[Rfam]
RNA: Guanidine-II riboswitch aptamer (mini-ykkC)
Nucleotides: 047
Stems, first nucleotide, its partner, number of pairs: 001020008034047005
Number, partner (000 for none) and nucleotide at each position: 001020a002019g003018c004017c005016g006015c007014g008013g009000a010000c011000g012000a013008c014007c015006g016005c017004g018003g019002c020001u021000c022000g023000c024000c025000a026000u027000g028000c029000u030000c031000a032000c033000g034047g035046c036045g037044g038043g039000a040000c041000g042000g043038c044037c045036c046035g047034c